[Rfam]
RNA sequence: AAAAAGGGUCAGUUGGCUAAUUAUGCCACGCUCAUCCUUGUUGGUGAGUGCUGUAUGGCCAUCAAGACAUAUGGCUGACAUUAUUUUUGUGAAAUUAUAGGGUUGGCUCGCCAAGCCGACCCUCAA
Numbered sequence: 001a002a003a004a005a006g007g008g009u010c011a012g013u014u015g016g017c018u019a020a021u022u023a024u025g026c027c028a029c030g031c032u033c034a035u036c037c038u039u040g041u042u043g044g045u046g047a048g049u050g051c052u053g054u055a056u057g058g059c060c061a062u063c064a065a066g067a068c069a070u071a072u073g074g075c076u077g078a079c080a081u082u083a084u085u086u087u088u089g090u091g092a093a094a095u096u097a098u099a100g101g102g103u104u105g106g107c108u109c110g111c112c113a114a115g116c117c118g119a120c121c122c123u124c125a126a
Stems, first nucleotide, its partner, number of pairs: 008079005014028004029050008051074007099123010
The record is a 126-nucleotide RNA from Trifolium pratense, which matches "U11 spliceosomal RNA" in Rfam. The source organism's lineage runs through Eukaryota, Streptophytina, Tracheophyta, Papilionoideae and Trifolium.